[Rfam]
The record is a 69-nucleotide RNA, which matches "Transposase-2 RNA" in Rfam. Pairs were carried over by alignment from the consensus structure, which is taken from published work.

RNA sequence: GAAGUGCGAACCAAGCGUGCGCGAAAGUGCUGUGAGACUUGGAGCGGGUGGCCGUAAGGGCACCCUGCA
Numbered sequence: 001g002a003a004g005u006g007c008g009a010a011c012c013a014a015g016c017g018u019g020c021g022c023g024a025a026a027g028u029g030c031u032g033u034g035a036g037a038c039u040u041g042g043a044g045c046g047g048g049u050g051g052c053c054g055u056a057a058g059g060g061c062a063c064c065c066u067g068c069a
Stems, first nucleotide, its partner, number of pairs: 011042005019030004046065005052059002
Rfam classes the family as a small RNA.